[Rfam]
Source information: Rfam assigns this 162-nucleotide sequence from Bacillus oleivorans to the family "SAM riboswitch aptamer (S box leader)". A search with the family's covariance model found it, with a score of 77 bits. Gene Ontology term of the family: regulation of gene expression.
RNA sequence: CUCUUAUCAAGAGCAGGCUGAGGGAAUUGGCCCGAUGAAGCCCAGCAACCGACCGUAAUACCGUUGUGAGACGGGGCGAAGAUUUUCGCCGGAUUCAAGCAGAUCCGCAAGGCACGGUGCUAAAUCCAACAAAAAGGUUUAUACCUUUUUGAAAGAUAAGAG
Numbered sequence: 001c002u003c004u005u006a007u008c009a010a011g012a013g014c015a016g017g018c019u020g021a022g023g024g025a026a027u028u029g030g031c032c033c034g035a036u037g038a039a040g041c042c043c044a045g046c047a048a049c050c051g052a053c054c055g056u057a058a059u060a061c062c063g064u065u066g067u068g069a070g071a072c073g074g075g076g077c078g079a080a081g082a083u084u085u086u087c088g089c090c091g092g093a094u095u096c097a098a099g100c101a102g103a104u105c106c107g108c109a110a111g112g113c114a115c116g117g118u119g120c121u122a123a124a125u126c127c128a129a130c131a132a133a134a135a136g137g138u139u140u141a142u143a144c145c146u147u148u149u150u151g152a153a154a155g156a157u158a159a160g161a162g
Stems, first nucleotide, its partner, number of pairs: 001162008013043001016042003022033003027129004044121004049117002051113001053111001125154001130151008